[Rfam]
A member of the RNA family "Eukaryotic large subunit ribosomal RNA" from Porphyridium purpureum, 493 nucleotides of a longer RNA. The family has 88 seed sequences and 107,465 matches in Rfam 15.1. The source organism's lineage runs through Eukaryota, Rhodophyta, Bangiophyceae, Porphyridiaceae and Porphyridium. Rfam links the family to the GO terms ribosome and structural constituent of ribosome.
RNA sequence: CCCUCCGAAGUUUCCCUCAGGAUAGCGGGAGCGACGAUCAGUUUUGUCAGGUAAAGCGAAUGAUUAGAGAUUUGGGGGCUCGUUUGUCUUCGGUCUAUUCUCAAACUUUAAAUGGGCAAGGCGCGGGCGCUGCGUGGUGGAGCGCGCGCGGACAAUGAUCGCUCCCAGUGGGCCGUUUUUGGUAAGCAGAACUGGCGAUGCGGGAUGAACCGAACGCGCAGCUAAGGUGCCUAAAUGCACGCUCAUUCUAGAACCCAGAAAAGGUGUUGAUACAUCCAGACAGCAGGACGGUGGCCAUGGAAGUCGGAACCCGCUAAGGAGUGUGUAACAACUCACCUGCCGAAUGCAUCAGCCCUGAAAAUGGAUGGCGCUGAAGCGUGCUACCGAUGCUGCGCCGUGCUGCGGACGUUGUUGCGGAGCAUGAGUAGGAGGGCGUGGCGGUUGCGGGGAAGCGCGUGGCGCGAGCCUGCGUGGAGCGUCUGCCAGUGCAGAU
Number, nucleotide and partner (000 for none) at each position: 001c433002c432003c431004u430005c429006c428007g000008a000009a000010g000011u024012u000013u022014c021015c020016c000017u000018c000019a000020g015021g014022a013023u000024a011025g000026c000027g166028g165029g164030a163031g162032c161033g160034a000035c000036g000037a000038u000039c000040a000041g000042u121043u120044u119045u118046g117047u116048c115049a000050g000051g000052u000053a000054a109055a107056g106057c000058g000059a000060a000061u103062g102063a101064u000065u000066a098067g000068a096069g095070a094071u000072u000073u093074g000075g091076g090077g089078g088079c000080u086081c000082g000083u000084u000085u000086g080087u000088c078089u077090u076091c075092g000093g073094u070095c069096u068097a000098u066099u000100c000101u063102c062103a061104a000105a000106c056107u055108u000109u054110a000111a000112a000113u000114g000115g048116g047117c046118a045119a044120g043121g042122c000123g149124c148125g147126g000127g145128c144129g143130c142131u141132g000133c000134g000135u000136g000137g000138u000139g000140g000141a131142g130143c129144g128145c127146g000147c125148g124149c123150g000151g000152a000153c000154a000155a000156u000157g000158a000159u000160c033161g032162c031163u030164c029165c028166c027167a000168g000169u000170g000171g000172g196173c195174c194175g193176u000177u191178u190179u189180u188181g187182g000183u000184a000185a000186g000187c181188a180189g179190a178191a177192c000193u175194g174195g173196c172197g000198a000199u000200g000201c212202g211203g210204g000205a000206u000207g000208a000209a000210c203211c202212g201213a000214a000215c000216g395217c394218g393219c392220a391221g000222c389223u000224a000225a000226g385227g384228u383229g000230c000231c000232u000233a000234a000235a382236u000237g381238c000239a000240c378241g377242c376243u000244c000245a000246u000247u000248c000249u000250a000251g000252a000253a000254c000255c000256c000257a000258g000259a000260a000261a000262a356263g355264g354265u000266g353267u352268u351269g350270a349271u348272a000273c346274a345275u344276c000277c000278a000279g000280a000281c000282a000283g340284c339285a338286g337287g336288a000289c313290g312291g311292u000293g000294g000295c307296c306297a000298u000299g000300g000301a000302a000303g000304u000305c000306g296307g295308a000309a000310c000311c291312c290313g289314c318315u000316a000317a000318g314319g334320a000321g000322u000323g332324u331325g000326u000327a000328a000329c000330a000331a324332c323333u000334c319335a000336c287337c286338u285339g284340c283341c000342g000343a000344a275345u274346g273347c000348a271349u270350c269351a268352g267353c266354c264355c263356u262357g000358a000359a000360a000361a000362u000363g000364g000365a000366u000367g000368g000369c000370g000371c000372u000373g000374a000375a000376g242377c241378g240379u000380g000381c237382u235383a228384c227385c226386g000387a000388u000389g222390c000391u220392g219393c218394g217395c216396c423397g422398u421399g420400c419401u418402g000403c416404g415405g000406a000407c000408g000409u000410u000411g000412u000413u000414g000415c404416g403417g000418a401419g400420c399421a398422u397423g396424a000425g000426u000427a000428g006429g005430a004431g003432g002433g001434c488435g000436u485437g484438g483439c482440g481441g480442u000443u478444g477445c476446g000447g000448g000449g000450a000451a000452g472453c471454g000455c000456g000457u000458g467459g466460c465461g000462c000463g000464a000465g460466c459467c458468u000469g000470c000471g453472u452473g000474g000475a000476g445477c444478g443479u000480c441481u440482g439483c438484c437485a436486g000487u000488g434489c000490a000491g000492a000493u000